drz-agam-2-2 ribozyme: a 196-nucleotide sequence from Anopheles gambiae.
Its family is annotated with catalytic activity in the Gene Ontology.
Pairs were carried over by alignment from the consensus structure, which is taken from published work.
The organism belongs to Anopheles gambiae, within Eukaryota.
RNA sequence: GCCAAGAAGCGUCUCUGUAAUGGGAUGGGAUCCGAAGCCCCAUUGAGGGAUAAUACAGGCUCUCCCAUCCAACUCCUAUUCCGACACGUCCUCGUCGUGCAGAGUGGUAACAUGUGUCACCACAUAUACAAGCUUGGGUACACGGGCUUGACCCAACCCCUUGGGCGGAUGGUGGCACAUGGCGAACCAGGAGGGG
Dot-bracket structure: ..........[[.[........((((((((.((........................))...))))))))...((((.((.(...(((.{{....)))...].]]}}...((((((.((((....((.(....((((((...........)))))).((....)).).)))))).))))))........)))))))